[Rfam]
RNA sequence: CCGCAGGGAAAAUGAGGGACUUUUGGGGGCAAAUGCGUCUUUCUGAAAUUACCGUAAUGCCCCUAAAAAUCCUUGUUGCUCUUGCG
Numbered sequence: 001c002c003g004c005a006g007g008g009a010a011a012a013u014g015a016g017g018g019a020c021u022u023u024u025g026g027g028g029g030c031a032a033a034u035g036c037g038u039c040u041u042u043c044u045g046a047a048a049u050u051a052c053c054g055u056a057a058u059g060c061c062c063c064u065a066a067a068a069a070u071c072c073u074u075g076u077u078g079c080u081c082u083u084g085c086g
Stems, first nucleotide, its partner, number of pairs: 015074005021068003025064007034056004